[Rfam]
RNA sequence: CUGUGAGGGGAAUGAUGUAUUACUAUCGUGCUCUCAAAAUGCUCGCUUUUCUGGAUUCUGCUUCAGAGAUGGAUAUCAGGG
Numbered sequence: 001c002u003g004u005g006a007g008g009g010g011a012a013u014g015a016u017g018u019a020u021u022a023c024u025a026u027c028g029u030g031c032u033c034u035c036a037a038a039a040u041g042c043u044c045g046c047u048u049u050u051c052u053g054g055a056u057u058c059u060g061c062u063u064c065a066g067a068g069a070u071g072g073a074u075a076u077c078a079g080g081g
Base pairs, nucleotide, nucleotide: 001081002080004078005077006076
This 81-nucleotide RNA from Daucus carota belongs to the Rfam family "Small nucleolar RNA J33". The source organism's lineage runs through Eukaryota, Embryophyta, Apiales, Apiineae and Daucus carota. Gene Ontology terms of the family: nucleolus and RNA processing.